[Rfam]
RNA sequence: UUAAAAUUAAAUGGCGAUUGUCGGUUUGGUCGCUUUUUACCAGGGUUCCGAUCAAGCGAAGUGACUAGACCGAACACUCGUGCUAUAAUUUUAGAA
Numbered sequence: 001u002u003a004a005a006a007u008u009a010a011a012u013g014g015c016g017a018u019u020g021u022c023g024g025u026u027u028g029g030u031c032g033c034u035u036u037u038u039a040c041c042a043g044g045g046u047u048c049c050g051a052u053c054a055a056g057c058g059a060a061g062u063g064a065c066u067a068g069a070c071c072g073a074a075c076a077c078u079c080g081u082g083c084u085a086u087a088a089u090u091u092u093a094g095a096a
Stems, first nucleotide, its partner, number of pairs: 011086006019076003022072003027067005033061002
RNA: mir-286 microRNA precursor family
Organism: Drosophila pseudoobscura